RNA sequence: AAUUGUAAUCAGUGUAAGUUACUCUGGAUAAGAGCAUCUGCUAAAUGACAAUAA
Numbered sequence: 001a002a003u004u005g006u007a008a009u010c011a012g013u014g015u016a017a018g019u020u021a022c023u024c025u026g027g028a029u030a031a032g033a034g035c036a037u038c039u040g041c042u043a044a045a046u047g048a049c050a051a052u053a054a
Stems, first nucleotide, its partner, number of pairs: 013043001014041003020036001022034004
RNA: UnaL2 LINE 3' element